[Rfam]
RNA sequence: UGCCGGCUUUCCAUCAGCCGGGGUACUGAAGAGGCACACCAUCAUUGCCGGAAGUGCGGUAGGGUCCCCCUCCAAUCCAUGGCAGACAAAGCCGAACCGAUUGCCUUGGCAGGCGUUGGUUCACCAACUGUGCAUCAGGCGCGUGUUGAGGUU
Number, nucleotide and partner (000 for none) at each position: 001u023002g000003c021004c020005g019006g018007c017008u016009u000010u000011c000012c000013a000014u000015c000016a008017g007018c006019c005020g004021g003022g000023g001024u000025a000026c000027u000028g000029a000030a000031g000032a000033g049034g048035c047036a046037c000038a000039c000040c000041a000042u000043c000044a000045u000046u036047g035048c034049c033050g000051g000052a000053a000054g000055u000056g133057c132058g131059g000060u000061a000062g000063g000064g000065u000066c000067c000068c000069c000070c000071u000072c000073c000074a000075a000076u000077c000078c000079a000080u000081g093082g092083c000084a000085g000086a000087c000088a000089a000090a000091g000092c082093c081094g000095a000096a000097c000098c000099g000100a000101u000102u115103g114104c113105c112106u000107u000108g000109g000110c000111a000112g105113g104114c103115g102116u000117u000118g000119g000120u000121u000122c000123a000124c000125c000126a000127a000128c000129u000130g000131u058132g057133c056134a000135u000136c000137a000138g000139g000140c000141g000142c000143g000144u000145g000146u000147u000148g000149a000150g000151g000152u000153u000

Rfam assigns this 153-nucleotide RNA from Rhizobium sp. RU36D to the family "speF leader". It scores 102 bits against the family's covariance model. The base pairs follow the family's consensus structure, which was predicted with RNAalifold. A reference for the family is Corbino et al. (2005), "Evidence for a second class of S-adenosylmethionine riboswitches and other regulatory RNA motifs in alpha-proteobacteria", Genome Biol. Rfam's curators write: This family is a putative regulatory RNA structure that is found upstream of the speF gene encoding ornithine decarboxylase in Agrobacterium tumefaciens and other alpha-proteobacteria. The organism belongs to Rhizobium, within Bacteria.